[Rfam]
Nucleotides: 173
Stems, first nucleotide, its partner, number of pairs: 006168006016081007024073001030066007085114006092107004115141006122135004143158006
Number, partner (000 for none) and nucleotide at each position: 001000a002000a003000a004000g005000u006168c007167a008166g009165a010164a011163g012000a013000g014000g015000a016081g017080c018079a019078u020077u021076a022075a023000c024073c025000a026000g027000g028000u029000a030066g031065c032064u033063a034062c035061u036060u037000c038000g039000a040000g041000g042000a043000g044000a045000u046000c047000a048000a049000a050000c051000u052000c053000c054000a055000a056000c057000g058000a059000c060036g061035g062034g063033u064032a065031g066030u067000g068000a069000g070000g071000g072000g073024g074000a075022u076021u077020a078019a079018u080017g081016c082000c083000g084000a085114g086113a087112c088111g089110a090109c091000c092107u093106g094105c095104u096000a097000u098000u099000u100000g101000a102000u103000g104095a105094g106093c107092a108000u109090g110089u111088u112087g113086u114085c115141g116140g117139u118138u119137g120136u121000u122135u123134a124133g125132g126000u127000u128000g129000a130000a131000u132125c133124c134123u135122g136120a137119c138118a139117a140116u141115u142000g143158u144157c145156a146155c147154c148153g149000u150000a151000u152000c153148u154147g155146g156145u157144g158143g159000a160000g161000a162000g163011c164010u165009u166008c167007u168006g169000g170000u171000u172000u173000a